[Rfam]
RNA sequence: AUGGACCACGCGUCAACUGCGGUCAUGGGCGCGCCGUCCGCGCCCACCUGACAGCUGCUCGCUACGUGUUGUUAGCC
Numbered sequence: 001a002u003g004g005a006c007c008a009c010g011c012g013u014c015a016a017c018u019g020c021g022g023u024c025a026u027g028g029g030c031g032c033g034c035c036g037u038c039c040g041c042g043c044c045c046a047c048c049u050g051a052c053a054g055c056u057g058c059u060c061g062c063u064a065c066g067u068g069u070u071g072u073u074a075g076c077c
Stems, first nucleotide, its partner, number of pairs: 002016001004014003020036004024031001048075007